[Rfam]
The family of this 130-nucleotide RNA from Microbacterium aerolatum is "FMN riboswitch aptamer (RFN element)". The literature on the family includes a 2020 paper in J Struct Biol X by Wilt et al., "FMN riboswitch aptamer symmetry facilitates conformational switching through mutually exclusive coaxial stacking configurations".

RNA sequence: CACGUGCUCCGGGGUCGGUGAAAUUCCGAACCGGCGGUCAAAGUCCGCGACCCGAGGCCCCUACGGGGCCGAGGUUGAACCGGUGGAAUUCCGGUACCGACAGUCACAGUCUGGAUGGGAGAAGCACGAU
Dot-bracket structure: ..((((((.(.....(((.......))).[[((((((.....[[))))...((...................))....(((((.......)))))]])).(((.....]]))).......).))))))..
Rfam describes the family as follows. The RFN element is a highly conserved domain that is found frequently in the 5'-untranslated regions of prokaryotic mRNAs that encode for flavin mononucleotide (FMN) biosynthesis and transport proteins. Pairs were carried over by alignment from the consensus structure, which is taken from published work.